[Rfam]
RNA sequence: AUCGAAUCAAGGCCGAAGCUUUCCUUAAGGAAGCGCGGGGGAACCUCUUUACUUGGGGUGAAGCCAUAUUCAUGGCAGGGUGAUUACUCUUUGACCCGAAUCCGUCAGCUAACCUCGUAGGCCAUAAAAAGGAGAGAU
Numbered sequence: 001a002u003c004g005a006a007u008c009a010a011g012g013c014c015g016a017a018g019c020u021u022u023c024c025u026u027a028a029g030g031a032a033g034c035g036c037g038g039g040g041g042a043a044c045c046u047c048u049u050u051a052c053u054u055g056g057g058g059u060g061a062a063g064c065c066a067u068a069u070u071c072a073u074g075g076c077a078g079g080g081u082g083a084u085u086a087c088u089c090u091u092u093g094a095c096c097c098g099a100a101u102c103c104g105u106c107a108g109c110u111a112a113c114c115u116c117g118u119a120g121g122c123c124a125u126a127a128a129a130a131g132g133a134g135a136g137a138u
Stems, first nucleotide, its partner, number of pairs: 011123004018034006035118006045055001056103003064075004078097004

Shown here is a 138-nucleotide RNA from Paenibacillus validus, a member of the family "c-di-AMP riboswitch aptamer (ydaO/yuaA leader)". About the family: This family represents a conserved RNA structure found upstream of the ydaO and yuaA genes in Bacillus subtilis and related genes in other bacteria.